Rfam assigns this 66-nucleotide RNA sequence from Emticicia sp. TH156 to the family "Fluoride riboswitch aptamer (crcB RNA motif)". It scores 44 bits against the family's covariance model.
[Rfam]
RNA sequence: AAACAAAAAGGAAAUGGUGUCUUCCUAACUGAACCGCCCUAAAAAGCUGAUGGCGCCUGAUUAUAA
Numbered sequence: 001a002a003a004c005a006a007a008a009a010g011g012a013a014a015u016g017g018u019g020u021c022u023u024c025c026u027a028a029c030u031g032a033a034c035c036g037c038c039c040u041a042a043a044a045a046g047c048u049g050a051u052g053g054c055g056c057c058u059g060a061u062u063a064u065a066a
Stems, first nucleotide, its partner, number of pairs: 010025004016057006036047002